[Rfam]
RNA: Manganese Mn2+ riboswitch aptamer (yybP-ykoY)
Organism: Vibrio ezurae
RNA sequence: CCCACAAUCUUUGGGGAGUAGCUUACCGAGACUGCAAGUCCGGUUCGUCCGUCAACAUAAUUGAUGCAAAAUCAUCAUGGCGUUCGAGACUCUUUGUUUAGCAAGACCUUAGAUAAGAAUCGCUAUCCUUGGUGGGAGAGUGGUGCUUAUCUAUUGUUUGUUAUCUCCCACCUUAAAGAGAGUC
Numbered sequence: 001c002c003c004a005c006a007a008u009c010u011u012u013g014g015g016g017a018g019u020a021g022c023u024u025a026c027c028g029a030g031a032c033u034g035c036a037a038g039u040c041c042g043g044u045u046c047g048u049c050c051g052u053c054a055a056c057a058u059a060a061u062u063g064a065u066g067c068a069a070a071a072u073c074a075u076c077a078u079g080g081c082g083u084u085c086g087a088g089a090c091u092c093u094u095u096g097u098u099u100a101g102c103a104a105g106a107c108c109u110u111a112g113a114u115a116a117g118a119a120u121c122g123c124u125a126u127c128c129u130u131g132g133u134g135g136g137a138g139a140g141u142g143g144u145g146c147u148u149a150u151c152u153a154u155u156g157u158u159u160g161u162u163a164u165c166u167c168c169c170a171c172c173u174u175a176a177a178g179a180g181a182g183u184c
Base pairs, nucleotide, nucleotide: 026043027042028041045087046086047085050082051081052080053079054078062077063076064075065074066073088184089183090182091181092180093179094178